[Rfam]
RNA sequence: GGUUUCCAUUGGUGCAAAUCCAAGCAUUUCAAUUUUGAAUUGAAGAUGAAAAAAUUCCCCAUUGGUAACAAAUGGUUAUCCAUUAAGCGGGGGAAAUCCCAU
Dot-bracket structure: ........((((.......)))).................................((((((.((((((.....)))))).)).....))))..........
Numbered sequence: 001g002g003u004u005u006c007c008a009u010u011g012g013u014g015c016a017a018a019u020c021c022a023a024g025c026a027u028u029u030c031a032a033u034u035u036u037g038a039a040u041u042g043a044a045g046a047u048g049a050a051a052a053a054a055u056u057c058c059c060c061a062u063u064g065g066u067a068a069c070a071a072a073u074g075g076u077u078a079u080c081c082a083u084u085a086a087g088c089g090g091g092g093g094a095a096a097u098c099c100c101a102u
Stems, first nucleotide, its partner, number of pairs: 009023004057092004061083002064080006